[Rfam]
The family of this 313-nucleotide RNA from Actinomadura harenae is "5' ureB small RNA". On this family, see Wen et al., J Bacteriol 2013: "Helicobacter pylori 5'ureB-sRNA, a cis-encoded antisense small RNA, negatively regulates ureAB expression by transcription termination".
RNA sequence: CUUCGUCGAGUUGUUCGGGACAGAUGAAGUGGACGUGGGUGUCCACCCCGCCGGCGGUGAGGAUCUUGCCGUUGCCGGAGAUGAUCUCGGUCUCCGGGCCGAUCACGAUGUCGGAGGCGACCGGGUGAUCGUCGUGCCGCCGGUUCAUCGUCUCGGGGUUGUACGCCUUGCCCAUGGCGGCGAUGUGGCCGUCGCGCAGCGCGACGUCGGCUUUGACGACGCACCAGUGGUCCAGGAUCACCACUCCGGUGAUCACCGUGUCCGGGGCGUUCCCCGCGCGGGGGACGCAGGACUGGCCCAUCGAUUCGCGGAU
Numbered sequence: 001c002u003u004c005g006u007c008g009a010g011u012u013g014u015u016c017g018g019g020a021c022a023g024a025u026g027a028a029g030u031g032g033a034c035g036u037g038g039g040u041g042u043c044c045a046c047c048c049c050g051c052c053g054g055c056g057g058u059g060a061g062g063a064u065c066u067u068g069c070c071g072u073u074g075c076c077g078g079a080g081a082u083g084a085u086c087u088c089g090g091u092c093u094c095c096g097g098g099c100c101g102a103u104c105a106c107g108a109u110g111u112c113g114g115a116g117g118c119g120a121c122c123g124g125g126u127g128a129u130c131g132u133c134g135u136g137c138c139g140c141c142g143g144u145u146c147a148u149c150g151u152c153u154c155g156g157g158g159u160u161g162u163a164c165g166c167c168u169u170g171c172c173c174a175u176g177g178c179g180g181c182g183a184u185g186u187g188g189c190c191g192u193c194g195c196g197c198a199g200c201g202c203g204a205c206g207u208c209g210g211c212u213u214u215g216a217c218g219a220c221g222c223a224c225c226a227g228u229g230g231u232c233c234a235g236g237a238u239c240a241c242c243a244c245u246c247c248g249g250u251g252a253u254c255a256c257c258g259u260g261u262c263c264g265g266g267g268c269g270u271u272c273c274c275c276g277c278g279c280g281g282g283g284g285a286c287g288c289a290g291g292a293c294u295g296g297c298c299c300a301u302c303g304a305u306u307c308g309c310g311g312a313u
Stems, first nucleotide, its partner, number of pairs: 002312002007308003011183005018076002022072001030053003034050002037048004057069003077172002081168001083166001090160001092158005097152003107146002110144005116138004188297004195291001197290001199288003202283001209245002214240002247281001249279001255271001258270003